[Rfam]
This 83-nucleotide sequence from Pogona vitticeps belongs to the Rfam family "Small nucleolar RNA SNORD111". Rfam links the family to the GO terms RNA processing and nucleolus. The base pairs follow the family's consensus structure, which was predicted with RNAalifold. NCBI's taxonomy places the organism under Eukaryota, Metazoa, Dipnotetrapodomorpha, Sauropsida, Pogona. Rfam 15.1 lists 894 matches to the family in 541 species.
RNA sequence: GGGCCUGAAAUGAUGAUUAAGAGUUCAUGUCUCUUCUCUGAGAUGAAACAUGGAGAUACUUGAAUCCAUUUCUGAUCAGGCUC
Numbered sequence: 001g002g003g004c005c006u007g008a009a010a011u012g013a014u015g016a017u018u019a020a021g022a023g024u025u026c027a028u029g030u031c032u033c034u035u036c037u038c039u040g041a042g043a044u045g046a047a048a049c050a051u052g053g054a055g056a057u058a059c060u061u062g063a064a065u066c067c068a069u070u071u072c073u074g075a076u077c078a079g080g081c082u083c
Stems, first nucleotide, its partner, number of pairs: 001083005